[Rfam]
RNA: Small nucleolar RNA SNORA12
RNA sequence: UAUUGUGGUAGCUUCUGUACUUGGCAGAUCUGUAACUGUAUCAGAGCGGCCUUGAACUACCACAGAGAUCAGAAAGGAGGGAGGCUGUGCUGAGAACUUUUUCAAGCUUAGUUUUCAGCUUUUUGUUCACCUCAUACAGAA
Numbered sequence: 001u002a003u004u005g006u007g008g009u010a011g012c013u014u015c016u017g018u019a020c021u022u023g024g025c026a027g028a029u030c031u032g033u034a035a036c037u038g039u040a041u042c043a044g045a046g047c048g049g050c051c052u053u054g055a056a057c058u059a060c061c062a063c064a065g066a067g068a069u070c071a072g073a074a075a076g077g078a079g080g081g082a083g084g085c086u087g088u089g090c091u092g093a094g095a096a097c098u099u100u101u102u103c104a105a106g107c108u109u110a111g112u113u114u115u116c117a118g119c120u121u122u123u124u125g126u127u128c129a130c131c132u133c134a135u136a137c138a139g140a141a
Stems, first nucleotide, its partner, number of pairs: 005063007023051003027047001029045004077133004104124003